[Rfam]
RNA sequence: CCCGCCACUGCACCUGACCACUUCCCCGUUGGCUGGUGCAUUCCAGUGGUGAGCUGAAAUAGGAACCCCCAGCUUAGAACAGGGUUAUUCUUCUGGUGGAUGACUCUGUGCCGAAGCAUGGGGACAACC
Numbered sequence: 001c002c003c004g005c006c007a008c009u010g011c012a013c014c015u016g017a018c019c020a021c022u023u024c025c026c027c028g029u030u031g032g033c034u035g036g037u038g039c040a041u042u043c044c045a046g047u048g049g050u051g052a053g054c055u056g057a058a059a060u061a062g063g064a065a066c067c068c069c070c071a072g073c074u075u076a077g078a079a080c081a082g083g084g085u086u087a088u089u090c091u092u093c094u095g096g097u098g099g100a101u102g103a104c105u106c107u108g109u110g111c112c113g114a115a116g117c118a119u120g121g122g123g124a125c126a127a128c129c
Base pairs, nucleotide, nucleotide: 005049006048007047008046009045010044017037018036019035020034022031067122068121069120071119072117073116074115075114077112080108081107082106083105084104085103088100089099090098

Rfam assigns this 129-nucleotide RNA sequence from Pipistrellus kuhlii to the family "Small nucleolar RNA SNORA65".
Lineage of the source: Eukaryota > Metazoa > Eumetazoa > Vertebrata > Pipistrellus.
From the family's description: U65 belongs to the H/ACA class of snoRNAs which are thought to guide the sites of modification of uridines to pseudouridines.
By type it is an H/ACA-box small nucleolar RNA.
The base pairs follow the family's consensus structure, which was predicted with RNAalifold.
The literature on the family includes a 2001 paper in EMBO J by Huttenhofer et al., "RNomics: an experimental approach that identifies 201 candidates for novel, small, non-messenger RNAs in mouse".